[Rfam]
RNA sequence: CUACUCCCUCCGUCUCAUAAUAUAAGACGUUUUUGCAAGCUAACAUAGCUUGCAAAAACGUCUUAUAUUAUGGGACGGAGGUAGUAG
Dot-bracket structure: ..(((.(((((.(((((.(((((((((((((((((((((((.....))))))))))))))))))))))).))))).))))).)))..